[Rfam]
RNA sequence: AGCGCGGCGCGAAUGCUGGCCGGGAUUACAUCUUUCCCGAUGCGUAUCAUCCCGGCUAUGAAUUUGUCGCGCAACGCU
Numbered sequence: 001a002g003c004g005c006g007g008c009g010c011g012a013a014u015g016c017u018g019g020c021c022g023g024g025a026u027u028a029c030a031u032c033u034u035u036c037c038c039g040a041u042g043c044g045u046a047u048c049a050u051c052c053c054g055g056c057u058a059u060g061a062a063u064u065u066g067u068c069g070c071g072c073a074a075c076g077c078u
Stems, first nucleotide, its partner, number of pairs: 001078003006075001007072006017058010029042004
Y RNA-like: a 78-nucleotide sequence from Salmonella enterica. About the family: In Deinococcus radiodurans Rsr is tethered via Y RNA to the exoribonuclease PNPase and channels single-stranded RNA into the PNPase cavity. Rsr and Y RNA enhance degradation of structured RNAs by PNPase. This role could be conserved, as Rsr and ncRNAs called YrlA and YrlB (Y RNA like) also associate with PNPase in an evolutionary distant bacterium Salmonella Typhimurium. It is one of the family's seed sequences.